The record is a 95-nucleotide sequence from Phoenix dactylifera, which matches "Small nucleolar RNA snoR109" in Rfam. For this family Rfam cites "Experimental RNomics: identification of 140 candidates for small non-messenger RNAs in the plant Arabidopsis thaliana" (Marker et al., Curr Biol, 2002). It scores 39 bits against the family's covariance model. Its family is annotated with nucleolus and RNA processing in the Gene Ontology. The family's consensus secondary structure was predicted with WAR. NCBI's taxonomy places the organism under Eukaryota, Streptophytina, Euphyllophyta, Arecaceae, Phoenix.

RNA sequence: UGGCUGUAGCUAUAUGAAUCAAGGGAAGAGGGAAGAAAACUGGUCGGCUUGUCCUCCUUAUUGUUGGCAACCCGCUUACCAAGCUUCCCACAUUA
Number, nucleotide and partner (000 for none) at each position: 001u000002g000003g000004c000005u000006g000007u000008a000009g000010c000011u000012a000013u000014a000015u000016g000017a000018a000019u000020c000021a000022a000023g000024g000025g000026a000027a000028g000029a000030g089031g088032g087033a086034a085035g084036a000037a000038a000039a000040c000041u000042g076043g075044u074045c000046g072047g071048c000049u069050u000051g068052u067053c066054c000055u000056c000057c000058u000059u000060a000061u000062u000063g000064u000065u000066g053067g052068c051069a049070a000071c047072c046073c000074g044075c043076u042077u000078a000079c000080c000081a000082a000083g000084c035085u034086u033087c032088c031089c030090a000091c000092a000093u000094u000095a000